[Rfam]
RNA sequence: CCUCUUCUCUGAACACGGGGGUAGUUCCCUCGGCCUGUUAUAUCUAGGAGCCCUAUCAUGGCACUUAGCGUUGAAGAAAAAGCCCAGAUCGUUAACGACUACAAGCGCGGCGAA
Numbered sequence: 001c002c003u004c005u006u007c008u009c010u011g012a013a014c015a016c017g018g019g020g021g022u023a024g025u026u027c028c029c030u031c032g033g034c035c036u037g038u039u040a041u042a043u044c045u046a047g048g049a050g051c052c053c054u055a056u057c058a059u060g061g062c063a064c065u066u067a068g069c070g071u072u073g074a075a076g077a078a079a080a081a082g083c084c085c086a087g088a089u090c091g092u093u094a095a096c097g098a099c100u101a102c103a104a105g106c107g108c109g110g111c112g113a114a
Stems, first nucleotide, its partner, number of pairs: 001021005044068005050062001
Rfam assigns this 114-nucleotide sequence from Pseudomonas sp. HPB0071 to the family "Ribosomal S15 leader". It scores 63 bits against the family's covariance model. The family is grouped with related families in Rfam's "Ribosomal Protein S15 Leader clan". About the family: The E. coli Ribosomal S15 gene 5' UTR can form two alternative structures. One that is a series of three hairpins, The other includes a pseudoknot.